This 67-nucleotide sequence from Solibacillus silvestris belongs to the Rfam family "Bacillaceae-1 RNA". Rfam 15.1 lists 5,721 matches to the family in 247 species. The family's RNA type in Rfam is small RNA. The match comes from Rfam's covariance-model search (70 bits).

RNA sequence: GAAUAAUGAAGUCAGCCUAAAUACGUCACAUUGUGUGACAACGGCUGACUGACCCACAUCCUGUGGG
Numbered sequence: 001g002a003a004u005a006a007u008g009a010a011g012u013c014a015g016c017c018u019a020a021a022u023a024c025g026u027c028a029c030a031u032u033g034u035g036u037g038a039c040a041a042c043g044g045c046u047g048a049c050u051g052a053c054c055c056a057c058a059u060c061c062u063g064u065g066g067g
Base pairs, nucleotide, nucleotide: 011049012048013047014046015045016044017043025039026038027037028036029035053067054066055065056064057063